[Rfam]
RNA sequence: UGCCUACUGAGCUGAUAACAGUUGAUGUAUUUAGCACUGGCUCAGUUCAGCAGGAAC
Numbered sequence: 001u002g003c004c005u006a007c008u009g010a011g012c013u014g015a016u017a018a019c020a021g022u023u024g025a026u027g028u029a030u031u032u033a034g035c036a037c038u039g040g041c042u043c044a045g046u047u048c049a050g051c052a053g054g055a056a057c
Base pairs, nucleotide, nucleotide: 001056003054004053005052007050008049009048010047011046012045013044014043015042019039020038021037022036

The record is a 57-nucleotide RNA from Ictalurus punctatus, which matches "mir-24 microRNA precursor family" in Rfam. The sequence is in the family's curated seed alignment. From the family's description: This family represents the microRNA (miRNA) mir-24 family. miRNAs are transcribed as ~70nt precursors (modelled here) and subsequently processed by the Dicer enzyme to give a ~22nt product. In this case the mature sequence comes from the 3' arm of the precursor. The extents of the hairpin precursors are not generally known and are estimated based on hairpin prediction. Rfam 15.1 lists 1,372 matches to the family in 601 species.